[Rfam]
Rfam assigns this 158-nucleotide RNA from Klebsiella michiganensis to the family "STAXI RNA".
RNA sequence: CGUUGUCUCUGACAACUGCCAAUGCCUGAGUGAUUUGAGACAGGCGCCUUCGGGUAAUCACAUGCCAAUGCCAUCAUAACCUGAGAGAUGGUGCUUUCGGGCGGUUCAAACCUGUUUAACCUUUGCAAACAGGAACCUGAUUACAGGUUAAGGUCCUU
Numbered sequence: 001c002g003u004u005g006u007c008u009c010u011g012a013c014a015a016c017u018g019c020c021a022a023u024g025c026c027u028g029a030g031u032g033a034u035u036u037g038a039g040a041c042a043g044g045c046g047c048c049u050u051c052g053g054g055u056a057a058u059c060a061c062a063u064g065c066c067a068a069u070g071c072c073a074u075c076a077u078a079a080c081c082u083g084a085g086a087g088a089u090g091g092u093g094c095u096u097u098c099g100g101g102c103g104g105u106u107c108a109a110a111c112c113u114g115u116u117u118a119a120c121c122u123u124u125g126c127a128a129a130c131a132g133g134a135a136c137c138u139g140a141u142u143a144c145a146g147g148u149u150a151a152g153g154u155c156c157u158u
Stems, first nucleotide, its partner, number of pairs: 002016006024045005030061006046055003070092005078106004093102003112133002116129001119154005135148005